[Rfam]
About this RNA
Rfam assigns this 73-nucleotide RNA sequence from Bucco capensis to the family "mir-1597 microRNA precursor family". It scores 93 bits against the family's covariance model. The base pairs follow the family's consensus structure, which was predicted with RNAalifold. The organism belongs to Bucco, within Eukaryota.

RNA sequence: UUUUAUGACAUGUUUACAGGGCUCUUCAUUGUGGUCUCAGCAAUAUGAAGAGCUCUGCAAGCAUGCAAUAAAA
Numbered sequence: 001u002u003u004u005a006u007g008a009c010a011u012g013u014u015u016a017c018a019g020g021g022c023u024c025u026u027c028a029u030u031g032u033g034g035u036c037u038c039a040g041c042a043a044u045a046u047g048a049a050g051a052g053c054u055c056u057g058c059a060a061g062c063a064u065g066c067a068a069u070a071a072a073a
Stems, first nucleotide, its partner, number of pairs: 002072005009065007017057013032042002